[Rfam]
RNA sequence: UGACGGGGGCCCGCACAAGCGGUGGAGCAUGUGGUUUAAUUCGAAGCAACGCGAAGAACCUUACCCAGGCUUGACAUCCUAGAGAAAGCUCCUGGAAACAGGAGGCCUCCUUCGGGACUCUAGGACAGGUGCUGCAUGGCUGUCGUCAGCUCGUGUCGUGAGAUGUUGGGUUAAGUCCCGCAACGAGCGCAACCCUUGCCCUAUGUUGCCAGCGGUUCGGCCGGGGACUCAUAGGGGACUGCCGGUGAUAAACCGGAGGAAGGUGGGGACGACGUCAAGUCAUCAUGGCCCUUACGCUUGGGGCUACACACGUGCUACAAUGGCCAGCACAAAGGGCUGCCAACCUGCGAAGGUGAGCGAAUCCCAAAAAGCUGGUCUAAGUUCGGAUUGUAGUCUGCAACUCGACUGCAUGAAGGCGGAAUCGCUAGUAAUCGUAGAUCAGCAACGCUACGGUGAAUACGUUCCCGGGCCUUGUACACACCGCCCGUCACGCCAUGGAAGCCGGGAGUGCCCGAAGUCCGUGUCCUAACCCUUGGGAGGGAGCGGCCGAAGGCAAGCUCGGUAACUGGGGCGAAGUCGUAACAAGG
Numbered sequence: 001u002g003a004c005g006g007g008g009g010c011c012c013g014c015a016c017a018a019g020c021g022g023u024g025g026a027g028c029a030u031g032u033g034g035u036u037u038a039a040u041u042c043g044a045a046g047c048a049a050c051g052c053g054a055a056g057a058a059c060c061u062u063a064c065c066c067a068g069g070c071u072u073g074a075c076a077u078c079c080u081a082g083a084g085a086a087a088g089c090u091c092c093u094g095g096a097a098a099c100a101g102g103a104g105g106c107c108u109c110c111u112u113c114g115g116g117a118c119u120c121u122a123g124g125a126c127a128g129g130u131g132c133u134g135c136a137u138g139g140c141u142g143u144c145g146u147c148a149g150c151u152c153g154u155g156u157c158g159u160g161a162g163a164u165g166u167u168g169g170g171u172u173a174a175g176u177c178c179c180g181c182a183a184c185g186a187g188c189g190c191a192a193c194c195c196u197u198g199c200c201c202u203a204u205g206u207u208g209c210c211a212g213c214g215g216u217u218c219g220g221c222c223g224g225g226g227a228c229u230c231a232u233a234g235g236g237g238a239c240u241g242c243c244g245g246u247g248a249u250a251a252a253c254c255g256g257a258g259g260a261a262g263g264u265g266g267g268g269a270c271g272a273c274g275u276c277a278a279g280u281c282a283u284c285a286u287g288g289c290c291c292u293u294a295c296g297c298u299u300g301g302g303g304c305u306a307c308a309c310a311c312g313u314g315c316u317a318c319a320a321u322g323g324c325c326a327g328c329a330c331a332a333a334g335g336g337c338u339g340c341c342a343a344c345c346u347g348c349g350a351a352g353g354u355g356a357g358c359g360a361a362u363c364c365c366a367a368a369a370a371g372c373u374g375g376u377c378u379a380a381g382u383u384c385g386g387a388u389u390g391u392a393g394u395c396u397g398c399a400a401c402u403c404g405a406c407u408g409c410a411u412g413a414a415g416g417c418g419g420a421a422u423c424g425c426u427a428g429u430a431a432u433c434g435u436a437g438a439u440c441a442g443c444a445a446c447g448c449u450a451c452g453g454u455g456a457a458u459a460c461g462u463u464c465c466c467g468g469g470c471c472u473u474g475u476a477c478a479c480a481c482c483g484c485c486c487g488u489c490a491c492g493c494c495a496u497g498g499a500a501g502c503c504g505g506g507a508g509u510g511c512c513c514g515a516a517g518u519c520c521g522u523g524u525c526c527u528a529a530c531c532c533u534u535g536g537g538a539g540g541g542a543g544c545g546g547c548c549g550a551a552g553g554c555a556a557g558c559u560c561g562g563u564a565a566c567u568g569g570g571g572c573g574a575a576g577u578c579g580u581a582a583c584a585a586g587g
Base pairs, nucleotide, nucleotide: 001478002477003475004474005473007472008471009470010469011468012467013466015462016461019425020424021423022422023421024318026316027315028314029313030312031311032310033309034307035306040055041054042053043052064302065301066300067299068298069297070296077125078124079123080122081121082120083119089104090103091102092101093100094099108117109116110115128291129290131289132288133287134286137285138284139280140279141278142276144274145273149188150187151186152185153184154183155164156163157162167180168179169178170177194268195267196266197265199236200235201234202233203232204231205230209225210224213223214222215221239259240258242256243255244254245253246252322377323376324375325374326373327372328371334365335364336363339358340357344353345352346351384415389410390409391408392407393406394405395404431454432453433452434451435450436449437448481586483583486579487578491573492572493571494570496568497567498566501563502562503561504560505559506558509555510554511553512552517548519546520545521544522543524542525541526540527539530537531536
The record is a 587-nucleotide part of an RNA from uncultured bacterium AD66-C11, which matches "Bacterial small subunit ribosomal RNA" in Rfam. Rfam links the family to the GO terms structural constituent of ribosome and ribosome. The literature on the family includes a 2002 paper in BMC Bioinformatics by Cannone et al., "The comparative RNA web (CRW) site: an online database of comparative sequence and structure information for ribosomal, intron, and other RNAs".